[Rfam]
Qrr RNA: a 105-nucleotide RNA from Vibrio ruber. Pairs were carried over by alignment from the consensus structure, which is taken from published work. From the family's description: This family represents a set of small RNAs (the Qrr RNAs) that are thought to be involved in the regulation of quorum sensing in Vibrio species. It is believed that these RNAs, guided by a protein, Hfq, can mediate the destabilisation of the quorum-sensing master regulators LuxR/HapR mRNAs. Taxonomically the source falls in Vibrio ruber (Bacteria, Vibrionales, Vibrionaceae, Vibrio).
RNA sequence: UGACCCUUAUUAAGCCGAGGGUCACCUAGCCAACUGACGUUGUUAGUGAACCUAAUUUGUUCAUAUUGAUAGCCAAUCACAAUCUUUGUGGUUGGCUUUUUUUAC
Dot-bracket structure: ((((((............))))))...............((((..((((((.......))))))....))))((((((((.......))))))))..........
Numbered sequence: 001u002g003a004c005c006c007u008u009a010u011u012a013a014g015c016c017g018a019g020g021g022u023c024a025c026c027u028a029g030c031c032a033a034c035u036g037a038c039g040u041u042g043u044u045a046g047u048g049a050a051c052c053u054a055a056u057u058u059g060u061u062c063a064u065a066u067u068g069a070u071a072g073c074c075a076a077u078c079a080c081a082a083u084c085u086u087u088g089u090g091g092u093u094g095g096c097u098u099u100u101u102u103u104a105c
Stems, first nucleotide, its partner, number of pairs: 001024006040072004046064006073095008